[Rfam]
RNA sequence: AUUUUAUAAAGGUACAGCUAAGGAAACUUAGCGUCACAAAGCUAUAGGGGCUAAGGGCUAACCUUUGCCAGCCAGCUGCCAUU
Numbered sequence: 001a002u003u004u005u006a007u008a009a010a011g012g013u014a015c016a017g018c019u020a021a022g023g024a025a026a027c028u029u030a031g032c033g034u035c036a037c038a039a040a041g042c043u044a045u046a047g048g049g050g051c052u053a054a055g056g057g058c059u060a061a062c063c064u065u066u067g068c069c070a071g072c073c074a075g076c077u078g079c080c081a082u083u
Base pairs, nucleotide, nucleotide: 012037013036017032018031019030020029021028022027040077041076042075043074047073048072049069050068051067056063057062
About this RNA:
c-di-GMP-I riboswitch aptamer: an 83-nucleotide sequence from Bacillus methanolicus. NCBI's taxonomy places the organism under Bacteria, Bacillati, Bacillaceae, Bacillus, Bacillus methanolicus. A search with the family's covariance model found it, with a score of 66 bits. The family's consensus secondary structure is taken from published work. About the family: GEMM was predicted in a large-scale screen for bacterial structured RNA regulatory elements.